Background: The family of this 532-nucleotide RNA from Wolfiporia cocos is "Nuclear RNase P". Its Rfam clan is "RNaseP clan". NCBI's taxonomy places the organism under Eukaryota, Dikarya, Agaricomycetes, Wolfiporia, Wolfiporia cocos. A search with the family's covariance model found it, with a score of 70 bits. The family's RNA type in Rfam is ribozyme.
RNA sequence: ACAGCACGAAGGCCGCAAUCCUCGCCACACACAGGACGCCCCGCGCGUCCAUUCCGCGAGUGGGAAGGUCUGAGCGUUCGAUACCAGCAAGAUAGUUCAAUGCCAGCAACCUCGCCCUAGCCGGGCAGGGCCUGAAACGGCCCAGGAGGACGACGAGCAAUCUCUCGCAGGCCGUAGCCCUCCAGACUGCCCAACGACGCCGUGGCUCCCCCUGUGGCAGAGGGCCUGGCAGGUGUAGUUCGGGGCGCGGGUUGAGACGUGUCCUCCGGUCCUCCGAACCGGGCGUGCAUGCACAAAGUAAGCAUCAUCAGUGCCGUUGUCCCCGCCUGAUCUAUGUGUCCCUCGUGUGGGACGCAACAGAGGCCAUCUCGCGCCCCUCUGGGCCCAGGGGCGUGCUCUGUGGAUGCGGGCCUCGCCCGGGCGGGAACCAGGCAGCGGUGCGCGGUGUGGAAACGGGUGCAUUGUCCUUUGGUGCACUUUGCGGUACGCGUCCUCGAGACGCGCAACUCGAUUCAGACUACUCUCGAACUGU
Numbered sequence: 001a002c003a004g005c006a007c008g009a010a011g012g013c014c015g016c017a018a019u020c021c022u023c024g025c026c027a028c029a030c031a032c033a034g035g036a037c038g039c040c041c042c043g044c045g046c047g048u049c050c051a052u053u054c055c056g057c058g059a060g061u062g063g064g065a066a067g068g069u070c071u072g073a074g075c076g077u078u079c080g081a082u083a084c085c086a087g088c089a090a091g092a093u094a095g096u097u098c099a100a101u102g103c104c105a106g107c108a109a110c111c112u113c114g115c116c117c118u119a120g121c122c123g124g125g126c127a128g129g130g131c132c133u134g135a136a137a138c139g140g141c142c143c144a145g146g147a148g149g150a151c152g153a154c155g156a157g158c159a160a161u162c163u164c165u166c167g168c169a170g171g172c173c174g175u176a177g178c179c180c181u182c183c184a185g186a187c188u189g190c191c192c193a194a195c196g197a198c199g200c201c202g203u204g205g206c207u208c209c210c211c212c213u214g215u216g217g218c219a220g221a222g223g224g225c226c227u228g229g230c231a232g233g234u235g236u237a238g239u240u241c242g243g244g245g246c247g248c249g250g251g252u253u254g255a256g257a258c259g260u261g262u263c264c265u266c267c268g269g270u271c272c273u274c275c276g277a278a279c280c281g282g283g284c285g286u287g288c289a290u291g292c293a294c295a296a297a298g299u300a301a302g303c304a305u306c307a308u309c310a311g312u313g314c315c316g317u318u319g320u321c322c323c324c325g326c327c328u329g330a331u332c333u334a335u336g337u338g339u340c341c342c343u344c345g346u347g348u349g350g351g352a353c354g355c356a357a358c359a360g361a362g363g364c365c366a367u368c369u370c371g372c373g374c375c376c377c378u379c380u381g382g383g384c385c386c387a388g389g390g391g392c393g394u395g396c397u398c399u400g401u402g403g404a405u406g407c408g409g410g411c412c413u414c415g416c417c418c419g420g421g422c423g424g425g426a427a428c429c430a431g432g433c434a435g436c437g438g439u440g441c442g443c444g445g446u447g448u449g450g451a452a453a454c455g456g457g458u459g460c461a462u463u464g465u466c467c468u469u470u471g472g473u474g475c476a477c478u479u480u481g482c483g484g485u486a487c488g489c490g491u492c493c494u495c496g497a498g499a500c501g502c503g504c505a506a507c508u509c510g511a512u513u514c515a516g517a518c519u520a521c522u523c524u525c526g527a528a529c530u531g532u
Stems, first nucleotide, its partner, number of pairs: 001532004007526003012485007021060004034050006070516005076271001078269002114126004128143005146266007164251005487503006